This 93-nucleotide RNA from Enterobacteriaceae bacterium RIT714 belongs to the Rfam family "ES056 sRNA".
The family's consensus secondary structure was predicted with RNAfold.
Rfam's curators write: Differentially expressed under several chemical stress and fermentation conditions.
RNA sequence: AGUACGCAUUAUUUUUUAUAUUUACCUCCCUGCGGAGGUUAUGGUCUGAUUCUACACACAGCAGUGCAACAUCUGUCAGUACUUCUGGUGUCC
Numbered sequence: 001a002g003u004a005c006g007c008a009u010u011a012u013u014u015u016u017u018a019u020a021u022u023u024a025c026c027u028c029c030c031u032g033c034g035g036a037g038g039u040u041a042u043g044g045u046c047u048g049a050u051u052c053u054a055c056a057c058a059c060a061g062c063a064g065u066g067c068a069a070c071a072u073c074u075g076u077c078a079g080u081a082c083u084u085c086u087g088g089u090g091u092c093c
Stems, first nucleotide, its partner, number of pairs: 001051003007043003011039006055090003059087003063083005069076002